[Rfam]
RNA sequence: CACCAAGUCUGCUCAUCUUCGCGAUGAGUCGACCUCCCUCCCUCGCUACUAUGCCUUGGCCACAGGUACGAGUAGUUGAGAAGAAUCGGCGGUUUUUGUUGAUGUCUUUUGUCCGCCUAAUCGCCCUGUAUUCUUUUACAGAGGAAACAUAAAACUAAUCUUAGAG
Numbered sequence: 001c002a003c004c005a006a007g008u009c010u011g012c013u014c015a016u017c018u019u020c021g022c023g024a025u026g027a028g029u030c031g032a033c034c035u036c037c038c039u040c041c042c043u044c045g046c047u048a049c050u051a052u053g054c055c056u057u058g059g060c061c062a063c064a065g066g067u068a069c070g071a072g073u074a075g076u077u078g079a080g081a082a083g084a085a086u087c088g089g090c091g092g093u094u095u096u097u098g099u100u101g102a103u104g105u106c107u108u109u110u111g112u113c114c115g116c117c118u119a120a121u122c123g124c125c126c127u128g129u130a131u132u133c134u135u136u137u138a139c140a141g142a143g144g145a146a147a148c149a150u151a152a153a154a155c156u157a158a159u160c161u162u163a164g165a166g
Stems, first nucleotide, its partner, number of pairs: 007035001009031001011029002015025003041083001042080004046075004050070001052068002058063001101160003104155002107153003110149003124144002126141004
A member of the RNA family "Ascomycota telomerase RNA" from Amylocarpus encephaloides, 166 nucleotides of a longer RNA.
Rfam classes the family as a non-coding RNA gene.
NCBI's taxonomy places the organism under Eukaryota, Ascomycota, leotiomyceta, sordariomyceta, Amylocarpus.
A search with the family's covariance model found it, with a score of 105 bits.
For this family Rfam cites "The common ancestral core of vertebrate and fungal telomerase RNAs" (Qi et al., Nucleic Acids Res, 2013).